[Rfam]
RNA sequence: AAUGAAAUUGAAUAAUCGCCGUAGACAGCAGGUGUGAAAGCUUAAUUUCCUGCCGAGGUAUCUCAUAAUAUAGAAAUCUUUAUGAUUAUGUGGGCCUUUUCUGUCUAUGGCGGAAAAGGCUUUUUCUUUAGCUCG
Numbered sequence: 001a002a003u004g005a006a007a008u009u010g011a012a013u014a015a016u017c018g019c020c021g022u023a024g025a026c027a028g029c030a031g032g033u034g035u036g037a038a039a040g041c042u043u044a045a046u047u048u049c050c051u052g053c054c055g056a057g058g059u060a061u062c063u064c065a066u067a068a069u070a071u072a073g074a075a076a077u078c079u080u081u082a083u084g085a086u087u088a089u090g091u092g093g094g095c096c097u098u099u100u101c102u103g104u105c106u107a108u109g110g111c112g113g114a115a116a117a118g119g120c121u122u123u124u125u126c127u128u129u130a131g132c133u134c135g
Base pairs, nucleotide, nucleotide: 028053029052030051031050032049034041035040094120095119096118097117098116099115100114101113102112103111
Shown here is a 135-nucleotide RNA from Sinanaerobacter chloroacetimidivorans, a member of the family "Ribosomal protein L10 leader". Rfam's curators write: This family is a putative r-protein leader autoregulatory structure found in B. subtilis and other low-GC Gram-positive bacteria. It is located in the 5' untranslated regions of mRNAs encoding ribosomal proteins L10 and L12 (rplJ-rplL). Rfam classes the family as a cis-regulatory leader. Lineage of the source: Bacteria > Clostridia > Peptostreptococcales > Anaerovoracaceae > Sinanaerobacter.